[Rfam]
RNA sequence: AAACAGCCUCCUAUGUUUUGAUUCUUUGACAGUUUUAGACCGCCAAGACAAAAAAAAAUGACACGUGGCACCUCACUUAGGGUGCCACGUUGACCGAGUCAACAAUGGACUGAAGGUAUAAAACUGCCAAAAAAUCAAAACAUGGGGGCUGUUU
Numbered sequence: 001a002a003a004c005a006g007c008c009u010c011c012u013a014u015g016u017u018u019u020g021a022u023u024c025u026u027u028g029a030c031a032g033u034u035u036u037a038g039a040c041c042g043c044c045a046a047g048a049c050a051a052a053a054a055a056a057a058a059u060g061a062c063a064c065g066u067g068g069c070a071c072c073u074c075a076c077u078u079a080g081g082g083u084g085c086c087a088c089g090u091u092g093a094c095c096g097a098g099u100c101a102a103c104a105a106u107g108g109a110c111u112g113a114a115g116g117u118a119u120a121a122a123a124c125u126g127c128c129a130a131a132a133a134a135u136c137a138a139a140a141c142a143u144g145g146g147g148g149c150u151g152u153u154u
Stems, first nucleotide, its partner, number of pairs: 001154002004151005012144012025131004030126008039117003044112002063090002066087007